Source information: This 129-nucleotide RNA from Streptomyces echinoruber belongs to the Rfam family "Streptomyces-metH RNA". By type it is a small RNA. The source organism's lineage runs through Bacteria, Bacillati, Actinomycetota, Streptomycetaceae and Streptomyces.

RNA sequence: GCCGUCCGCCUCGUGGACGCCCUGCCCAUCCGAGCCCGCUCCCCGUUACCCUGACGACGUGCGCCUCCUCCCAGAAGAGCGGGGAGCCGCAUAGCCGACAGCCGUCGCACCCGAGGGAGCCCCUUCAUG
Number, nucleotide and partner (000 for none) at each position: 001g000002c000003c000004g000005u000006c000007c000008g000009c000010c000011u000012c000013g000014u000015g000016g000017a000018c000019g000020c000021c000022c000023u000024g000025c000026c000027c000028a000029u000030c000031c000032g000033a000034g000035c000036c000037c000038g000039c000040u000041c000042c000043c000044c000045g000046u000047u000048a000049c000050c000051c000052u000053g000054a000055c000056g000057a000058c000059g000060u091061g090062c089063g088064c000065c086066u085067c084068c083069u082070c081071c000072c000073a000074g000075a000076a000077g000078a000079g000080c000081g070082g069083g068084g067085a066086g065087c000088c063089g062090c061091a060092u000093a000094g108095c107096c000097g106098a105099c104100a000101g000102c000103c000104g099105u098106c097107g095108c094109a000110c000111c000112c000113g000114a000115g000116g000117g000118a000119g000120c000121c000122c000123c000124u000125u000126c000127a000128u000129g000